[Rfam]
Nucleotides: 107
Stems, first nucleotide, its partner, number of pairs: 023097008035088006042081002048079004
Number, partner (000 for none) and nucleotide at each position: 001000a002000a003000a004000a005000u006000a007000c008000a009000c010000u011000u012000a013000a014000a015000a016000c017000a018000c019000c020000a021000c022000a023097c024096a025095u026094a027093c028092a029091u030090c031000g032000g033000c034000a035088c036087a037086u038085g039084a040083a041000a042081c043080g044000g045000g046000g047000u048079g049078c050077u051076c052000a053000g054000u055000u056000c057000g058000c059000g060000a061000a062000g063000c064000g065000a066000u067000u068000c069000g070000c071000a072000g073000a074000c075000a076051g077050a078049g079048u080043c081042g082000g083040u084039u085038c086037a087036u088035g089000g090030g091029a092028u093027g094026u095025a096024u097023g098000g099000a100000g101000g102000c103000c104000u105000a106000a107000c
Rfam assigns this 107-nucleotide sequence from Idiomarina tyrosinivorans to the family "t44 RNA". Pairs were carried over by alignment from the consensus structure, which was predicted with LocARNA. It scores 75 bits against the family's covariance model. This family consists of a number of bacterial RNA genes of between 135 and 170 bases in length. The t44 gene has been identified in several species of enteric bacteria but homologs have also been identified in Pseudomonas and Coxiella species.